[Rfam]
RNA: Eukaryotic small subunit ribosomal RNA, nucleotides 33 to 587
Organism: Eosentomon sp. FNSA-2002
RNA sequence: UGUCUAAAAGCUUAAGCCAUGCAUGUCUAUGUUCAGCUCCUUUGAGGGGUGAAACCGCGAAUGGCUCAUUAUAUAAGUUGUGGCAUAUUGGUCAGAGCGUUUUUACUUGGAUAACUGUGGGAAUUCUAGAGCUAAUACAUGCAUUCAGGCUUUGACUCCUGGCAACGGGAGGAGGAGCGCUUUUAUUAGAUCGAAGCCAACCUGGGUGUACGCUUGUCGUGCAUUCCGGUCUGCAGGCUUGUUUUGCGGGCUUGAUGACUCUGGAAAACUACAGGCCAAUUGAAUCUCGUUCUGAGGUCUAUGUGACCAUAUGGCAACUUAUCGAUCAGCUUGAUUGAUGUGUAUUGGACAACAAUGGCUGUUACCGAUAACGGGGAAUCAGGGUUCGAUUCCGGAGAGGGAGCCUGAGAGACGGCUACCACAUCCAAGGAAGGCAGCAGGCGCGCAAAUUACCCACUCCUGGUUCAGGGAGGUAGUGACGAGAAAUACCGGGAAGGGACAUUGUUGUCCCCGCUCCCGGAAUGAGACGAUUUUAAACCUCUUUACGAGGACCCA
Number, nucleotide and partner (000 for none) at each position: 001u000002g000003u484004c483005u482006a000007a000008a000009a477010g444011c000012u000013u000014a000015a000016g442017c441018c440019a000020u439021g438022c437023a000024u000025g058026u057027c000028u000029a000030u000031g055032u054033u000034c000035a000036g000037c000038u049039c000040c000041u000042u000043u000044g000045a000046g000047g000048g000049g038050u000051g000052a000053a000054a032055c031056c000057g026058c025059g000060a000061a000062u000063g000064g000065c397066u396067c395068a000069u000070u000071a000072u000073a000074u321075a320076a319077g318078u000079u000080g315081u314082g000083g000084c313085a312086u000087a000088u000089u000090g308091g307092u306093c305094a000095g000096a000097g000098c000099g000100u000101u000102u000103u000104u000105a000106c141107u000108u139109g138110g000111a000112u000113a000114a000115c131116u130117g000118u128119g127120g126121g000122a000123a000124u000125u000126c120127u119128a118129g000130a116131g115132c000133u000134a000135a000136u000137a000138c109139a108140u000141g106142c000143a000144u000145u000146c000147a000148g000149g178150c177151u176152u175153u174154g000155a000156c171157u170158c169159c168160u167161g000162g000163c000164a000165a000166c000167g160168g159169g158170a157171g156172g000173a000174g153175g152176a151177g150178c149179g000180c000181u000182u000183u268184u267185a000186u265187u264188a000189g000190a000191u000192c000193g000194a000195a000196g256197c000198c254199a253200a000201c000202c000203u000204g000205g000206g000207u000208g000209u000210a000211c000212g000213c000214u000215u000216g000217u000218c000219g000220u000221g000222c000223a000224u000225u000226c000227c000228g000229g000230u000231c000232u000233g242234c241235a240236g000237g000238c000239u000240u235241g234242u233243u000244u000245u000246g000247c000248g000249g000250g000251c000252u000253u199254g198255a000256u196257g000258a000259c000260u000261c000262u000263g000264g187265a186266a000267a184268a183269c000270u000271a000272c000273a000274g000275g000276c000277c000278a000279a000280u301281u000282g299283a298284a000285u297286c296287u295288c294289g000290u000291u000292c000293u000294g288295a287296g286297g285298u283299c282300u000301a280302u000303g000304u000305g093306a092307c091308c090309a000310u000311a000312u085313g084314g081315c080316a000317a000318c077319u076320u075321a074322u368323c367324g366325a000326u000327c000328a000329g359330c358331u357332u000333g000334a356335u355336u354337g353338a000339u351340g350341u349342g000343u000344a000345u000346u000347g000348g000349a341350c340351a339352a000353c337354a336355a335356u334357g331358g330359c329360u000361g000362u000363u000364a000365c000366c324367g323368a322369u000370a000371a000372c394373g393374g392375g391376g387377a386378a385379u384380c000381a000382g000383g000384g379385u378386u377387c376388g000389a000390u000391u375392c374393c373394g372395g067396a066397g065398a000399g420400g419401g000402a417403g416404c415405c000406u000407g000408a000409g000410a000411g000412a000413c000414g000415g404416c403417u402418a000419c400420c399421a000422c433423a000424u431425c430426c000427a000428a000429g000430g425431a424432a000433g422434g000435c000436a000437g022438c021439a020440g018441g017442c016443g000444c010445g000446c000447a000448a000449a000450u475451u000452a474453c473454c472455c000456a000457c000458u470459c469460c468461u467462g466463g000464u000465u000466c462467a461468g460469g459470g458471a000472g454473g453474u452475a450476g000477u009478g000479a000480c000481g000482a005483g004484a003485a000486a000487u000488a000489c000490c519491g518492g517493g514494a000495a000496g511497g510498g509499a508500c507501a506502u000503u000504g000505u000506u501507g500508u499509c498510c497511c496512c000513g000514c493515u000516c000517c492518c491519g490520g000521a000522a000523u000524g000525a000526g546527a000528c000529g000530a542531u000532u000533u000534u000535a000536a000537a000538c000539c000540u000541c000542u530543u000544u000545a000546c526547g000548a000549g000550g000551a000552c000553c000554c000555a000